mir-208 microRNA precursor family: an 80-nucleotide RNA from Phrynocephalus forsythii. Its family is annotated with RISC complex and miRNA-mediated post-transcriptional gene silencing in the Gene Ontology. On this family, see Lagos-Quintana et al., RNA 2003: "New microRNAs from mouse and human".

[Rfam]
RNA sequence: UCUAAUGGCAAAGCUUUUGGCUCGGGUUAUAUUUUAAAAUGGACGUGUAUAAGACGAGCAAAAAGCUUGUUGAUUGGAGG
Numbered sequence: 001u002c003u004a005a006u007g008g009c010a011a012a013g014c015u016u017u018u019g020g021c022u023c024g025g026g027u028u029a030u031a032u033u034u035u036a037a038a039a040u041g042g043a044c045g046u047g048u049a050u051a052a053g054a055c056g057a058g059c060a061a062a063a064a065g066c067u068u069g070u071u072g073a074u075u076g077g078a079g080g
Stems, first nucleotide, its partner, number of pairs: 003076004008071001011068008020059001023056002027052006